Shown here is a 112-nucleotide RNA from Cellulomonas sp. JH27-2, a member of the family "SAM (S-adenosyl methionine) riboswitch aptamer". Pairs were carried over by alignment from the consensus structure, which is taken from published work. Rfam links the family to the GO terms S-adenosylmethionine metabolic process and regulation of gene expression.

RNA sequence: GGUCCCGAGUUCCGCCGUCUGGCUCGGCAGGCGGAACAGCAACCCCCACGACACCGGCGGGGUGCUCCCGAGCACGACCUGGCGUCCGCGACCGCGGUCGCAAGCGAUGUCC
Numbered sequence: 001g002g003u004c005c006c007g008a009g010u011u012c013c014g015c016c017g018u019c020u021g022g023c024u025c026g027g028c029a030g031g032c033g034g035a036a037c038a039g040c041a042a043c044c045c046c047c048a049c050g051a052c053a054c055c056g057g058c059g060g061g062g063u064g065c066u067c068c069c070g071a072g073c074a075c076g077a078c079c080u081g082g083c084g085u086c087c088g089c090g091a092c093c094g095c096g097g098u099c100g101c102a103a104g105c106g107a108u109g110u111c112c
Stems, first nucleotide, its partner, number of pairs: 001079004009037007020029002038066003043062003047057001049056001082101003086097004